Record summary
c-di-GMP-I riboswitch aptamer: a 76-nucleotide RNA sequence from Candidatus Xianfuyuplasma coldseepsis. It scores 54 bits against the family's covariance model. Lineage of the source: Bacteria > Bacillati > Mollicutes > Candidatus Izemoplasmataceae > Candidatus Xianfuyuplasma.

[Rfam]
RNA sequence: UUGAAACAAUGCCAAACUAGGAGUGAUCCUAGGACGGAAAACUAUAGGGUCUCACACGAGAUAGCCAGCUGCCAAG
Numbered sequence: 001u002u003g004a005a006a007c008a009a010u011g012c013c014a015a016a017c018u019a020g021g022a023g024u025g026a027u028c029c030u031a032g033g034a035c036g037g038a039a040a041a042c043u044a045u046a047g048g049g050u051c052u053c054a055c056a057c058g059a060g061a062u063a064g065c066c067a068g069c070u071g072c073c074a075a076g
Stems, first nucleotide, its partner, number of pairs: 012037002017032006040070001042068002047066002049062005